[Rfam]
RNA sequence: GGCUUUUUUCGCGGCGGAGAUCGACCGCCCACAGAAGUAAUCGUCCGGUUCAUCGAUACCUAUCGCGACGAGUUCGGGGUCGAGCCCAUCAUCCGCGCACUGGCAGCAACCAGCGCGAAGAUUGCCCUG
Number, nucleotide and partner (000 for none) at each position: 001g000002g000003c000004u000005u000006u000007u000008u000009u000010c000011g000012c000013g029014g028015c027016g026017g025018a000019g000020a000021u000022c000023g000024a000025c017026c016027g015028c014029c013030c000031a000032c000033a000034g000035a000036a000037g000038u000039a000040a000041u000042c000043g000044u000045c000046c000047g000048g000049u000050u000051c000052a000053u000054c000055g000056a000057u000058a000059c000060c000061u000062a000063u000064c000065g000066c000067g000068a000069c000070g000071a000072g000073u000074u000075c129076g128077g127078g126079g125080u000081c000082g000083a000084g000085c000086c124087c000088a000089u121090c120091a000092u118093c117094c000095g000096c000097g000098c000099a000100c000101u000102g000103g000104c000105a000106g000107c000108a000109a000110c000111c000112a000113g000114c000115g000116c000117g093118a092119a000120g090121a089122u000123u000124g086125c079126c078127c077128u076129g075
Description:
A member of the RNA family "ALIL pseudoknot" from Corynebacterium alimapuense, 129 nucleotides long. It scores 65 bits against the family's covariance model. By type it is a cis-regulatory element. The organism belongs to Corynebacterium, within Bacteria.